[Rfam]
This 136-nucleotide RNA from Heliornis fulica belongs to the Rfam family "Small nucleolar RNA SNORA61". The source organism's lineage runs through Eukaryota, Eumetazoa, Gnathostomata, Sarcopterygii and Heliornis. It scores 87 bits against the family's covariance model. The family has 25 seed sequences and 881 matches in Rfam 15.1. The family's RNA type in Rfam is H/ACA-box small nucleolar RNA. Rfam's curators write: ACA61 is a member of the H/ACA class of snoRNA that guide the sites of modification of uridines to pseudouridines. Gene Ontology terms of the family: RNA processing and nucleolus.
RNA sequence: UCCCUCCAGAUCCCUUUCCCAUCAGAUCUGAACACCGAUCUUGUGGUCGUAAACGGAGGAAAAGUAAAAUUCAAACUGGUCUUGGCCUCUUUGCUGGUGUGGCCCCGCUCUGAGAGAGGCCAGUUGGAAAACAAGU
Numbered sequence: 001u002c003c004c005u006c007c008a009g010a011u012c013c014c015u016u017u018c019c020c021a022u023c024a025g026a027u028c029u030g031a032a033c034a035c036c037g038a039u040c041u042u043g044u045g046g047u048c049g050u051a052a053a054c055g056g057a058g059g060a061a062a063a064g065u066a067a068a069a070u071u072c073a074a075a076c077u078g079g080u081c082u083u084g085g086c087c088u089c090u091u092u093g094c095u096g097g098u099g100u101g102g103c104c105c106c107g108c109u110c111u112g113a114g115a116g117a118g119g120c121c122a123g124u125u126g127g128a129a130a131a132c133a134a135g136u
Stems, first nucleotide, its partner, number of pairs: 003059005019046003023043001025040004076123007